Rfam assigns this 162-nucleotide sequence from Bacillus sp. FJAT-49736 to the family "glmS glucosamine-6-phosphate activated ribozyme aptamer".

[Rfam]
RNA sequence: UUAAUUAGAAAAGCGCCAGAACUAAACGGUGAGUGUUUAGUUGACGAGGUGGAGGAAUAUCGAGGAUUUCGGCGGGUACCUCCCGGCUGCCACACACAGUCGAAGUCUUUUUCUCAAAACACUGGGGUGACCCAGUGCACAAAGGAAAAAGAAAUGGUGGAA
Numbered sequence: 001u002u003a004a005u006u007a008g009a010a011a012a013g014c015g016c017c018a019g020a021a022c023u024a025a026a027c028g029g030u031g032a033g034u035g036u037u038u039a040g041u042u043g044a045c046g047a048g049g050u051g052g053a054g055g056a057a058u059a060u061c062g063a064g065g066a067u068u069u070c071g072g073c074g075g076g077u078a079c080c081u082c083c084c085g086g087c088u089g090c091c092a093c094a095c096a097c098a099g100u101c102g103a104a105g106u107c108u109u110u111u112u113c114u115c116a117a118a119a120c121a122c123u124g125g126g127g128u129g130a131c132c133c134a135g136u137g138c139a140c141a142a143a144g145g146a147a148a149a150a151g152a153a154a155u156g157g158u159g160g161a162a
Stems, first nucleotide, its partner, number of pairs: 020042008051083005060072004084102006106152007120137007
Dot-bracket structure: ...................((((((((.......))))))))........(((((....((((.....))))......)))))((((((.......))))))...(((((((.......(((((((....)))))))........)))))))..........
It scores 127 bits against the family's covariance model.